[Rfam]
RNA sequence: UUGAUCCAGUGGAGAAGUUGUAUCUGCACAAGUUGUGAGAUUCUACUCCUCCGACUGUAUCCG
Number, nucleotide and partner (000 for none) at each position: 001u000002u000003g000004a000005u000006c000007c057008a056009g055010u053011g052012g051013a050014g049015a000016a000017g047018u045019u000020g000021u000022a000023u040024c039025u000026g000027c037028a036029c035030a034031a000032g000033u000034u030035g029036u028037g027038a000039g024040a023041u000042u000043c000044u000045a018046c000047u017048c000049c014050u013051c012052c011053g010054a000055c009056u008057g007058u000059a000060u000061c000062c000063g000
RNA: mir-1175 microRNA precursor family